This 164-nucleotide part of an RNA from Telonema subtile belongs to the Rfam family "Eukaryotic small subunit ribosomal RNA". The source organism's lineage runs through Eukaryota, Telonemia, Telonemida, Telonemidae and Telonema. The family's consensus secondary structure is taken from published work. It is one of the family's seed sequences.

[Rfam]
RNA sequence: CCGCCCGUCGCUACUACCGAUUGGAUGGUCCGGUGAGAACUCUGGAUUGCGGUUGAUGUGCCGGUCUCCGGUGCAUGACUGCGAGAAGUUGAUCGAACCUUAUCAUCUAGAGGAAGUAAAAGUCGUAACAAGGUUUCCGUAGGUGAACCUGCGGAGGAUCAAAG
Numbered sequence: 001c002c003g004c005c006c007g008u009c010g011c012u013a014c015u016a017c018c019g020a021u022u023g024g025a026u027g028g029u030c031c032g033g034u035g036a037g038a039a040c041u042c043u044g045g046a047u048u049g050c051g052g053u054u055g056a057u058g059u060g061c062c063g064g065u066c067u068c069c070g071g072u073g074c075a076u077g078a079c080u081g082c083g084a085g086a087a088g089u090u091g092a093u094c095g096a097a098c099c100u101u102a103u104c105a106u107c108u109a110g111a112g113g114a115a116g117u118a119a120a121a122g123u124c125g126u127a128a129c130a131a132g133g134u135u136u137c138c139g140u141a142g143g144u145g146a147a148c149c150u151g152c153g154g155a156g157g158a159u160c161a162a163a164g
Stems, first nucleotide, its partner, number of pairs: 001132001003129001006125002009122001012118004017113002021109001023108007032099003037094002040091001043088001047084009060072004134157010